[Rfam]
RNA sequence: GCAGAUAAUGGCAAACCCGACCGAAAGGCGGGGACGCAAAGCCACGGGCCUGGGACAUUCGUCGUGCGACGAAGUGACGGCAGCCGGGUUGCCUAAU
Numbered sequence: 001g002c003a004g005a006u007a008a009u010g011g012c013a014a015a016c017c018c019g020a021c022c023g024a025a026a027g028g029c030g031g032g033g034a035c036g037c038a039a040a041g042c043c044a045c046g047g048g049c050c051u052g053g054g055a056c057a058u059u060c061g062u063c064g065u066g067c068g069a070c071g072a073a074g075u076g077a078c079g080g081c082a083g084c085c086g087g088g089u090u091g092c093c094u095a096a097u
Stems, first nucleotide, its partner, number of pairs: 001097001003094002011037002016032004021028002035083001040090004045086003048081003

Notes
Shown here is a 97-nucleotide RNA sequence from Cohnella xylanilytica, a member of the family "c-di-GMP-I-GGC riboswitch aptamer". The family has 40 seed sequences and 1,298 matches in Rfam 15.1.